A member of the RNA family "Lysine riboswitch aptamer" from Lederbergia citrea, 184 nucleotides long. Gene Ontology term of the family: lysine biosynthetic process. It scores 101 bits against the family's covariance model. NCBI's taxonomy places the organism under Bacteria, Bacillati, Bacillota, Bacilli, Lederbergia.
RNA sequence: GGAUGGGGUAGAGGCGCAAAAGGAAUGAGUAGGCUGUGUGAGGAUGACAACGAUGAUCACAACCAAAGGGUUCUUUUGCCGAAGCGGAAAUUGAUGUCGAUUGAUUUUCGUUGGUGUUGCUUUAAAUAAGAGUAACACUCUCAUGGUUGGUGUUUUUUACCAAAAAUGGGGAGCUACAGAUCGC
Numbered sequence: 001g002g003a004u005g006g007g008g009u010a011g012a013g014g015c016g017c018a019a020a021a022g023g024a025a026u027g028a029g030u031a032g033g034c035u036g037u038g039u040g041a042g043g044a045u046g047a048c049a050a051c052g053a054u055g056a057u058c059a060c061a062a063c064c065a066a067a068g069g070g071u072u073c074u075u076u077u078g079c080c081g082a083a084g085c086g087g088a089a090a091u092u093g094a095u096g097u098c099g100a101u102u103g104a105u106u107u108u109c110g111u112u113g114g115u116g117u118u119g120c121u122u123u124a125a126a127u128a129a130g131a132g133u134a135a136c137a138c139u140c141u142c143a144u145g146g147u148u149g150g151u152g153u154u155u156u157u158u159a160c161c162a163a164a165a166a167u168g169g170g171g172a173g174c175u176a177c178a179g180a181u182c183g184c
Stems, first nucleotide, its partner, number of pairs: 008177004016079009032064002035061004083112012113139011141169004147163004